[Rfam]
RNA sequence: AAAAAGGGUGCUCGCUACUUUAAUAGCGCGUCAGUACGAUUAGAAAUCGUGCUGGCGGGGUAUGGCAAAUCAAGACAUACCCAGUACAUAAUUUUUGUAAACGUGAGGCUGUCGGCUGCCAAUUUUGCACCGGCGCCUCC
Number, nucleotide and partner (000 for none) at each position: 001a000002a000003a000004a000005a000006g000007g000008g087009u086010g085011c084012u083013c028014g027015c026016u025017a024018c000019u000020u000021u000022a000023a000024u017025a016026g015027c014028g013029c057030g056031u055032c054033a053034g052035u051036a050037c049038g048039a047040u046041u000042a000043g000044a000045a000046a040047u039048c038049g037050u036051g035052c034053u033054g032055g031056c030057g029058g082059g081060g080061u079062a078063u077064g076065g000066c000067a000068a000069a000070u000071c000072a000073a000074g000075a000076c064077a063078u062079a061080c060081c059082c058083a012084g011085u010086a009087c008088a000089u000090a000091a000092u000093u000094u000095u000096u000097g000098u000099a000100a000101a000102c000103g000104u000105g000106a138107g137108g136109c135110u000111g134112u133113c132114g131115g130116c000117u129118g128119c127120c000121a000122a000123u000124u000125u000126u000127g119128c118129a117130c115131c114132g113133g112134c111135g109136c108137c107138u106139c000140c000
U11 spliceosomal RNA: a 140-nucleotide sequence from Habropoda laboriosa.
The literature on the family includes a 1988 paper in Proc Natl Acad Sci U S A by Montzka and Steitz, "Additional low-abundance human small nuclear ribonucleoproteins: U11, U12, etc".
The match comes from Rfam's covariance-model search (103 bits).